[Rfam]
The family of this 74-nucleotide RNA from Vombatus ursinus is "Small nucleolar RNA SNORD99". The family's consensus secondary structure was predicted with RNAalifold. Its family is annotated with RNA processing and nucleolus in the Gene Ontology. On this family, see Galardi et al., Mol Cell Biol 2002: "Purified box C/D snoRNPs are able to reproduce site-specific 2'-O-methylation of target RNA in vitro". It scores 73 bits against the family's covariance model.
RNA sequence: ACUGGUCAAGGAUGAAUCUCAAUCUGGUAGACAUGACUUGGAUGACACUUGCGGAUAUGGGACUGAGACCAGGC
Numbered sequence: 001a002c003u004g005g006u007c008a009a010g011g012a013u014g015a016a017u018c019u020c021a022a023u024c025u026g027g028u029a030g031a032c033a034u035g036a037c038u039u040g041g042a043u044g045a046c047a048c049u050u051g052c053g054g055a056u057a058u059g060g061g062a063c064u065g066a067g068a069c070c071a072g073g074c
Stems, first nucleotide, its partner, number of pairs: 002072004